[Rfam]
RNA sequence: GGGGCCGGUGGGCCACUGACCUCCUCAAAAACCGAGGGAAAGAACUACCCGCCCACCCACCCUCCCCGCCGGAAAGCCCUCAUCACCCGUCCGGGUGACCGGCUUGCAGCGGCGGGAUACGGACGGUUACGUUCGCCGCGACAACCGCAAACAGAUACGGCCCCCGGCCGGGACUGGCAUCCCGAUCGAGGGCCUGACCGAUCAGGAAGAGACAGAGACUUCCCG
Dot-bracket structure: (..(..((((((....................................................))))))............((((((....))))))............(((((.................))))).....................(((((.((...((((......))))...)).)))))....)..)..(((((.........)))))..
Streptomyces sRNA 4677: a 225-nucleotide sequence from Streptomyces spiralis. Taxonomically the source falls in Streptomyces (Bacteria, Bacillati, Kitasatosporales, Streptomycetaceae). By type it is a small RNA. Rfam's curators write: Located in the intergenic region between anti-sigma factor SCO4677 gene and a putative regulatory protein gene SCO4676. scr4677 expression requires the SCO4677 activity and scr4677 sRNA itself seem to affect the levels of the SCO4676-associated transcripts.